Overview
Selenocysteine insertion sequence 1: a 59-nucleotide RNA from Hemibagrus wyckioides.

RNA sequence: UUUAGUUGAUGAAGACAUCAUUGGAAAGCCAAGGGGAUGAUGUCUGAUGUUGGGCUAAA
Numbered sequence: 001u002u003u004a005g006u007u008g009a010u011g012a013a014g015a016c017a018u019c020a021u022u023g024g025a026a027a028g029c030c031a032a033g034g035g036g037a038u039g040a041u042g043u044c045u046g047a048u049g050u051u052g053g054g055c056u057a058a059a
Stems, first nucleotide, its partner, number of pairs: 001059005014044009
It is annotated as a cis-regulatory element.
The incorporation of selenocysteine into a protein sequence is directed by an in-frame UGA codon (usually a stop codon) within the coding region of the mRNA. Selenoprotein mRNAs contain a conserved secondary structure in the 3' UTR that is required for the distinction of UGA stop from UGA selenocysteine. The selenocysteine insertion sequence (SECIS) is around 60 nt in length and adopts a hairpin structure which is sufficiently well-defined and conserved to act as a computational screen for selenoprotein genes.